[Rfam]
RNA sequence: AUCACCUGAGGAUCUUGAUAAAAUGUAGGUUUUGAUUUAGUAGGUCUAGAGUGGGGCCUGAGAUUCUGCAUUUCUAACAAGCUCCCAAGUGAUGCUGA
Numbered sequence: 001a002u003c004a005c006c007u008g009a010g011g012a013u014c015u016u017g018a019u020a021a022a023a024u025g026u027a028g029g030u031u032u033u034g035a036u037u038u039a040g041u042a043g044g045u046c047u048a049g050a051g052u053g054g055g056g057c058c059u060g061a062g063a064u065u066c067u068g069c070a071u072u073u074c075u076a077a078c079a080a081g082c083u084c085c086c087a088a089g090u091g092a093u094g095c096u097g098a
Base pairs, nucleotide, nucleotide: 003091004090005089010084011083014081015080016079017078019076020075021073022072023071025069026068027067028066029065031063032062033061
The family of this 98-nucleotide sequence from Pteropus vampyrus is "mir-544 microRNA precursor family". For this family Rfam cites "Mammalian microRNAs: experimental evaluation of novel and previously annotated genes" (Chiang et al., Genes Dev, 2010). The family's consensus secondary structure was predicted with RNAalifold. Lineage of the source: Eukaryota > Craniata > Euteleostomi > Theria > Pteropus. Rfam 15.1 lists 10,750 matches to the family in 132 species.